[Rfam]
RNA sequence: AACGAAGUUUUCUAGGGUUCCGCUCGAAAUGAGGUCAGGUCCGAGAGAAAACGCAGUGGCAACACUGUACACGGAAGGACAAAAGCCUGGGAGAA
Numbered sequence: 001a002a003c004g005a006a007g008u009u010u011u012c013u014a015g016g017g018u019u020c021c022g023c024u025c026g027a028a029a030u031g032a033g034g035u036c037a038g039g040u041c042c043g044a045g046a047g048a049a050a051a052c053g054c055a056g057u058g059g060c061a062a063c064a065c066u067g068u069a070c071a072c073g074g075a076a077g078g079a080c081a082a083a084a085g086c087c088u089g090g091g092a093g094a095a
Stems, first nucleotide, its partner, number of pairs: 007052006015042002020039002022036001023033004053068006070090001072093001076088003
Rfam assigns this 95-nucleotide RNA from Aliicoccus persicus to the family "Guanidine-I riboswitch aptamer". A search with the family's covariance model found it, with a score of 82 bits. Rfam's curators write: This family represents a conserved RNA structure found upstream of the ykkC and yxkD genes in Bacillus subtilis and related genes in other bacteria. The organism belongs to Aliicoccus, within Bacteria.